This 73-nucleotide RNA from Brassica napus belongs to the Rfam family "tRNA". It is annotated as a transfer RNA.

[Rfam]
RNA sequence: GGGGAUGUAGCUCAAAUGGUAGAGCGCUUGCUUUGCAUGCGAGAGGCACGGACUUCGAUUACCCACAUUUCCA
Numbered sequence: 001g002g003g004g005a006u007g008u009a010g011c012u013c014a015a016a017u018g019g020u021a022g023a024g025c026g027c028u029u030g031c032u033u034u035g036c037a038u039g040c041g042a043g044a045g046g047c048a049c050g051g052a053c054u055u056c057g058a059u060u061a062c063c064c065a066c067a068u069u070u071c072c073a
Stems, first nucleotide, its partner, number of pairs: 001072007010025004027043005050064002

The match comes from Rfam's covariance-model search (47 bits).
The organism belongs to Brassica, within Eukaryota.